[Rfam]
Nucleotides: 091
Base pairs, nucleotide, nucleotide: 001091002090003089004088
Number, partner (000 for none) and nucleotide at each position: 001091g002090g003089g004088c005000u006000g007000u008000g009000a010000u011000g012000a013000g014000a015000u016000a017000u018000u019000g020000a021000g022000a023000a024000a025000g026000u027000c028000a029000u030000g031000c032000a033000c034000c035000a036000c037000u038000c039000u040000g041000a042000u043000a044000a045000u046000c047000u048000c049000a050000g051000g052000u053000g054000u055000u056000g057000a058000u059000a060000a061000a062000u063000u064000u065000c066000u067000c068000u069000c070000a071000c072000c073000c074000a075000c076000g077000u078000a079000a080000u081000u082000u083000u084000c085000u086000g087000a088004g089003c090002u091001c